[Rfam]
Annotation:
Rfam assigns this 205-nucleotide sequence from Miscanthus lutarioriparius to the family "MIR6217 microRNA precursor family". Rfam links the family to the GO terms miRNA-mediated post-transcriptional gene silencing and RISC complex. Lineage of the source: Eukaryota > Viridiplantae > Streptophyta > commelinids > Miscanthus. The family's consensus secondary structure was predicted with RNAalifold.

RNA sequence: UAGCUAUAAAAUAACUUAUUUUAUAACCAUUUUGAGUUACUAUAAUUACUAUGUUAAUUUAUGAGAUUAUAGUAACUUCUUGCUAAGUGGUUUACUAUAACGUUAUGGUAAAUAUCCCCAUGUGUUAUAGUAACCCAACUAUCGUAAAUAUGUAUUAAAAUUAUCGUAAAUGGAUAUGGCUACAGAAUAACUUAUUUUGUAGCUG
Numbered sequence: 001u002a003g004c005u006a007u008a009a010a011a012u013a014a015c016u017u018a019u020u021u022u023a024u025a026a027c028c029a030u031u032u033u034g035a036g037u038u039a040c041u042a043u044a045a046u047u048a049c050u051a052u053g054u055u056a057a058u059u060u061a062u063g064a065g066a067u068u069a070u071a072g073u074a075a076c077u078u079c080u081u082g083c084u085a086a087g088u089g090g091u092u093u094a095c096u097a098u099a100a101c102g103u104u105a106u107g108g109u110a111a112a113u114a115u116c117c118c119c120a121u122g123u124g125u126u127a128u129a130g131u132a133a134c135c136c137a138a139c140u141a142u143c144g145u146a147a148a149u150a151u152g153u154a155u156u157a158a159a160a161u162u163a164u165c166g167u168a169a170a171u172g173g174a175u176a177u178g179g180c181u182a183c184a185g186a187a188u189a190a191c192u193u194a195u196u197u198u199g200u201a202g203c204u205g
Stems, first nucleotide, its partner, number of pairs: 001205014016190007024182002027179004032174002037169004042164006067157001069155003072151003080147004087142006093132011107117002
Dot-bracket structure: ((((((((((((((.(((((((.((.((((.((...((((.((((((...................(.((((((.....((((...(((((((((((((((((...((.......))....)))))))))))....)))))).)))).))).))).).)))))).))))...)).)))).)).))))))).))))))))))))))